[Rfam]
RNA sequence: GUAGAGGUUUAGCUCAGUGGUUACUUCCUAACAUCCGACUAGUUAUCUCCCCUCACCGGGUUCGCGUCCAGCGGUCCCCGAGGAUCUACCACGGGCGCUGUCCUCUGCUUUU
Numbered sequence: 001g002u003a004g005a006g007g008u009u010u011a012g013c014u015c016a017g018u019g020g021u022u023a024c025u026u027c028c029u030a031a032c033a034u035c036c037g038a039c040u041a042g043u044u045a046u047c048u049c050c051c052c053u054c055a056c057c058g059g060g061u062u063c064g065c066g067u068c069c070a071g072c073g074g075u076c077c078c079c080g081a082g083g084a085u086c087u088a089c090c091a092c093g094g095g096c097g098c099u100g101u102c103c104u105c106u107g108c109u110u111u112u
Base pairs, nucleotide, nucleotide: 002107003106004105005104006103007102012096013095014094015093017092018091019090020089026084027083028082029081
This 112-nucleotide RNA sequence from Sparus aurata belongs to the Rfam family "Vault RNA". The base pairs follow the family's consensus structure, which is taken from published work. The organism belongs to Sparus, within Eukaryota. About the family: This family of RNAs are found as part of the enigmatic vault ribonucleoprotein complex.